A member of the RNA family "Actinobacteria sRNA Ms_IGR-5", 227 nucleotides long.
By type it is a small RNA.

[Rfam]
RNA sequence: ACACGGGAAAGGAGGUGGUCCAGCAGAUGAGCUACAGCAGGACACGUGAGGUGGCCGUCAGCUAGCACCACGUUCUGCUCCGGCGGGGAGAACCCGUACGGAGAGACGGUCGUGGAAGCCGGUGUGGUGCCGGCGAGUUCCCGACGGUCACCCGUGAUCCCCGGGCCCGAGCCUUGUCCGGUUCGGCUGCGCGCACCGCCCGGUGCGGCCCGGGGAUCACGCACGUC
Numbered sequence: 001a002c003a004c005g006g007g008a009a010a011g012g013a014g015g016u017g018g019u020c021c022a023g024c025a026g027a028u029g030a031g032c033u034a035c036a037g038c039a040g041g042a043c044a045c046g047u048g049a050g051g052u053g054g055c056c057g058u059c060a061g062c063u064a065g066c067a068c069c070a071c072g073u074u075c076u077g078c079u080c081c082g083g084c085g086g087g088g089a090g091a092a093c094c095c096g097u098a099c100g101g102a103g104a105g106a107c108g109g110u111c112g113u114g115g116a117a118g119c120c121g122g123u124g125u126g127g128u129g130c131c132g133g134c135g136a137g138u139u140c141c142c143g144a145c146g147g148u149c150a151c152c153c154g155u156g157a158u159c160c161c162c163g164g165g166c167c168c169g170a171g172c173c174u175u176g177u178c179c180g181g182u183u184c185g186g187c188u189g190c191g192c193g194c195a196c197c198g199c200c201c202g203g204u205g206c207g208g209c210c211c212g213g214g215g216a217u218c219a220c221g222c223a224c225g226u227c
Stems, first nucleotide, its partner, number of pairs: 014059006061134003065130002068127007153221013167186006

It scores 74 bits against the family's covariance model.